[Rfam]
RNA sequence: UAUUGUGGUGGUUUCUCUGUUUGGCAGAUCUGUAACUGUAUCAGAGCGGCCUUAAACCACCACAGAGAUCAAAAAGGAGAAGGCUGUGCUGAGAACUUCUUCAAGCUUGUAGUUUUCAGCAUUUUGUUCAGCUCCUAUAUUU
Numbered sequence: 001u002a003u004u005g006u007g008g009u010g011g012u013u014u015c016u017c018u019g020u021u022u023g024g025c026a027g028a029u030c031u032g033u034a035a036c037u038g039u040a041u042c043a044g045a046g047c048g049g050c051c052u053u054a055a056a057c058c059a060c061c062a063c064a065g066a067g068a069u070c071a072a073a074a075a076g077g078a079g080a081a082g083g084c085u086g087u088g089c090u091g092a093g094a095a096c097u098u099c100u101u102c103a104a105g106c107u108u109g110u111a112g113u114u115u116u117c118a119g120c121a122u123u124u125u126g127u128u129c130a131g132c133u134c135c136u137a138u139a140u141u142u
Base pairs, nucleotide, nucleotide: 005063006062007061008060009059010058011057023051024050025049027047029045030044031043032042076135077134078133079132103125104124105123
Dot-bracket structure: ....(((((((...........(((.(.((((.........)))).).))).....)))))))............((((.......................(((.................)))......)))).......
This 142-nucleotide RNA from Tricholaema leucomelas belongs to the Rfam family "Small nucleolar RNA SNORA12".
U108 belongs to the H/ACA family of snoRNAs. The sequence is predicted to guide the pseudouridylation of the U372 residue in the 28S rRNA subunit. However it has not been reported as a pseudouridylation site.
NCBI's taxonomy places the organism under Eukaryota, Euteleostomi, Tetrapoda, Theropoda, Tricholaema lacrymosa.
A search with the family's covariance model found it, with a score of 82 bits.
On this family, see Gu et al., Nucleic Acids Res 2005: "A novel experimental approach for systematic identification of box H/ACA snoRNAs from eukaryotes".
By type it is an H/ACA-box small nucleolar RNA.
The base pairs follow the family's consensus structure, which was predicted with RNAalifold.